[Rfam]
RNA sequence: GGGGGUGAUCGGUUUCGACUUCGGUGGUUGUUGUAGGGGAAGCGGGCCGAGGACGGCGGACGCAGCCUCGUAAAAAUGCGACCGCAAAACAAUAAGUGCCAACUCUAAGCGCACUGAGUUCGCUCUCGCCGCCUAAGCGACAGCGACUCUGUCGGCCUGGGGGUGUCUCCGCUCCAGUGUCCGGCAUCGUUGAGGAGACUCACCGCUCGGACCAGGCCACAGGGUCCGUUCGGGACAUUCAUGUGGCUGGGCCUGUCGGCGACUUGUCUGCGUGAGCGCCGGGGCCGAGUAGAACGCUGAGCAGACUGCGCCCGGAGAAGCCCUGCUGCAGCACUGAAGGACGCGGGUUCGAUUCCCGCCACCUCCACUG
Numbered sequence: 001g002g003g004g005g006u007g008a009u010c011g012g013u014u015u016c017g018a019c020u021u022c023g024g025u026g027g028u029u030g031u032u033g034u035a036g037g038g039g040a041a042g043c044g045g046g047c048c049g050a051g052g053a054c055g056g057c058g059g060a061c062g063c064a065g066c067c068u069c070g071u072a073a074a075a076a077u078g079c080g081a082c083c084g085c086a087a088a089a090c091a092a093u094a095a096g097u098g099c100c101a102a103c104u105c106u107a108a109g110c111g112c113a114c115u116g117a118g119u120u121c122g123c124u125c126u127c128g129c130c131g132c133c134u135a136a137g138c139g140a141c142a143g144c145g146a147c148u149c150u151g152u153c154g155g156c157c158u159g160g161g162g163g164u165g166u167c168u169c170c171g172c173u174c175c176a177g178u179g180u181c182c183g184g185c186a187u188c189g190u191u192g193a194g195g196a197g198a199c200u201c202a203c204c205g206c207u208c209g210g211a212c213c214a215g216g217c218c219a220c221a222g223g224g225u226c227c228g229u230u231c232g233g234g235a236c237a238u239u240c241a242u243g244u245g246g247c248u249g250g251g252c253c254u255g256u257c258g259g260c261g262a263c264u265u266g267u268c269u270g271c272g273u274g275a276g277c278g279c280c281g282g283g284g285c286c287g288a289g290u291a292g293a294a295c296g297c298u299g300a301g302c303a304g305a306c307u308g309c310g311c312c313c314g315g316a317g318a319a320g321c322c323c324u325g326c327u328g329c330a331g332c333a334c335u336g337a338a339g340g341a342c343g344c345g346g347g348u349u350c351g352a353u354u355c356c357c358g359c360c361a362c363c364u365c366c367a368c369u370g
Stems, first nucleotide, its partner, number of pairs: 001366007019339008028330001030329002033326006043314005048070005056085004061080001124145001126143001128141001130139003150186006156179001158177001160175004165199006203233003208228004215248006250286005257281003263276002266306004273300001343359005
A member of the RNA family "transfer-messenger RNA" from Thermobifida cellulosilytica, 370 nucleotides long. Rfam's curators write: Bacterial tmRNA, also known as 10Sa RNA or SsrA, is named for its dual tRNA and mRNA-like properties. Its role is to liberate the mRNA from a stalled ribosome. To accomplish this part of the tmRNA is used as a reading frame that ends in a translation stop signal. The broken mRNA is replaced in the ribosome by the tmRNA and translation of the tmRNA leads to addition of a proteolysis tag to the incomplete protein enabling recognition by a protease. The base pairs follow the family's consensus structure, which is taken from published work. The match comes from Rfam's covariance-model search (162 bits). By type it is a non-coding RNA gene.